The record is a 179-nucleotide RNA sequence from Antarctobacter heliothermus, which matches "Ruegeria cis52 sRNA" in Rfam. It is annotated as a small RNA. Taxonomically the source falls in Antarctobacter (Bacteria, Pseudomonadati, Alphaproteobacteria, Rhodobacterales).
RNA sequence: UUCGCAGCGCGUGUUUCAUGACGAUAUUGCCGAAACUGACGCCUUUCAGGCGCGCGGUGCGGAUGUAUUGCGCGGUCAUGACCUCGGCCAUCGAGGCGCGCGUCAUCCGGGCGAUAUAGCCCAUGCCGUAAAGGGCGAUGGUCAGCACCGGCAGAAAGAAAUUCUCGAAUGUCGCAUUG
Numbered sequence: 001u002u003c004g005c006a007g008c009g010c011g012u013g014u015u016u017c018a019u020g021a022c023g024a025u026a027u028u029g030c031c032g033a034a035a036c037u038g039a040c041g042c043c044u045u046u047c048a049g050g051c052g053c054g055c056g057g058u059g060c061g062g063a064u065g066u067a068u069u070g071c072g073c074g075g076u077c078a079u080g081a082c083c084u085c086g087g088c089c090a091u092c093g094a095g096g097c098g099c100g101c102g103u104c105a106u107c108c109g110g111g112c113g114a115u116a117u118a119g120c121c122c123a124u125g126c127c128g129u130a131a132a133g134g135g136c137g138a139u140g141g142u143c144a145g146c147a148c149c150g151g152c153a154g155a156a157a158g159a160a161a162u163u164c165u166c167g168a169a170u171g172u173c174g175c176a177u178u179g
Stems, first nucleotide, its partner, number of pairs: 005140002008137003012133001014131002016128001021124001028123002040111001042109001046105001048103001050101005055075001057073006082096005146179002149174005154165001156163002